[Rfam]
RNA sequence: AAAGUCUCCUACGCCACGGCCAUGGACUGGUUCAUCGCCGUGUGCUUCGCCUUC
Numbered sequence: 001a002a003a004g005u006c007u008c009c010u011a012c013g014c015c016a017c018g019g020c021c022a023u024g025g026a027c028u029g030g031u032u033c034a035u036c037g038c039c040g041u042g043u044g045c046u047u048c049g050c051c052u053u054c
Stems, first nucleotide, its partner, number of pairs: 002053002008049001011046001013045002015042006022035005
Notes
A member of the RNA family "Editing element of GABA-3 exon 9" from Neogobius melanostomus, 54 nucleotides long. The family has 52 seed sequences and 4,208 matches in Rfam 15.1. By type it is a cis-regulatory element. The family's consensus secondary structure is taken from published work.